[Rfam]
RNA: Nuclear RNase P
Organism: Cryoendolithus antarcticus
RNA sequence: ACCGCUGCGUUUCUUUGCUCCCACACAGACCCGCCUCGUGCUCGUCAACAAGGCAAAUGAGAAAUUCGGAGUAAUCUUCACCUUCCACAGUCACCCUCACCGCAAGCCCUUCGCAAGAAGACGCACGCAACGAGCUCUGACUCACUGCCCGCGAGGGCCUACCAUGGUACCCAUGGCUGCACUUUGGCAUCAGAAAUUUCAGCCUACCUCUUGAGCAAUUGGCAGGGGGCUAUGGGAGCCGGUGCGGAGAUUGUGUGCACUUCGGUGCGAUCACUUUAGUGCAAUACGCGGCGUGCCUUCCCCUUCAUGAAUCGGGGUCCUACGUGGAUCUCGGGUUUGAAGGGGAGGUAUAAUUCGAUUCCGAUUACUCUGGU
Numbered sequence: 001a002c003c004g005c006u007g008c009g010u011u012u013c014u015u016u017g018c019u020c021c022c023a024c025a026c027a028g029a030c031c032c033g034c035c036u037c038g039u040g041c042u043c044g045u046c047a048a049c050a051a052g053g054c055a056a057a058u059g060a061g062a063a064a065u066u067c068g069g070a071g072u073a074a075u076c077u078u079c080a081c082c083u084u085c086c087a088c089a090g091u092c093a094c095c096c097u098c099a100c101c102g103c104a105a106g107c108c109c110u111u112c113g114c115a116a117g118a119a120g121a122c123g124c125a126c127g128c129a130a131c132g133a134g135c136u137c138u139g140a141c142u143c144a145c146u147g148c149c150c151g152c153g154a155g156g157g158c159c160u161a162c163c164a165u166g167g168u169a170c171c172c173a174u175g176g177c178u179g180c181a182c183u184u185u186g187g188c189a190u191c192a193g194a195a196a197u198u199u200c201a202g203c204c205u206a207c208c209u210c211u212u213g214a215g216c217a218a219u220u221g222g223c224a225g226g227g228g229g230c231u232a233u234g235g236g237a238g239c240c241g242g243u244g245c246g247g248a249g250a251u252u253g254u255g256u257g258c259a260c261u262u263c264g265g266u267g268c269g270a271u272c273a274c275u276u277u278a279g280u281g282c283a284a285u286a287c288g289c290g291g292c293g294u295g296c297c298u299u300c301c302c303c304u305u306c307a308u309g310a311a312u313c314g315g316g317g318u319c320c321u322a323c324g325u326g327g328a329u330c331u332c333g334g335g336u337u338u339g340a341a342g343g344g345g346a347g348g349u350a351u352a353a354u355u356c357g358a359u360u361c362c363g364a365u366u367a368c369u370c371u372g373g374u
Stems, first nucleotide, its partner, number of pairs: 005290001014057004028046003033041002067363005076249004147158004162176005182244001184242005201231003293351010